RNA sequence: AUGUCCCCCCUUGUACACGGCGGUUCCUGCGCGCUGUCCGUGCCCAACCGGCAGCGCUCGCGACGUUUUGUUAGCC
Numbered sequence: 001a002u003g004u005c006c007c008c009c010c011u012u013g014u015a016c017a018c019g020g021c022g023g024u025u026c027c028u029g030c031g032c033g034c035u036g037u038c039c040g041u042g043c044c045c046a047a048c049c050g051g052c053a054g055c056g057c058u059c060g061c062g063a064c065g066u067u068u069u070g071u072u073a074g075c076c
Stems, first nucleotide, its partner, number of pairs: 002017003006013001021036004026031001048074001050072005

The family of this 76-nucleotide sequence from Xanthomonas albilineans is "Xanthomonas sRNA sX9". The base pairs follow the family's consensus structure, which was predicted with RNAalifold. On this family, see Schmidtke et al., Nucleic Acids Res 2011: "Genome-wide transcriptome analysis of the plant pathogen Xanthomonas identifies sRNAs with putative virulence functions". The organism belongs to Xanthomonas albilineans, within Bacteria.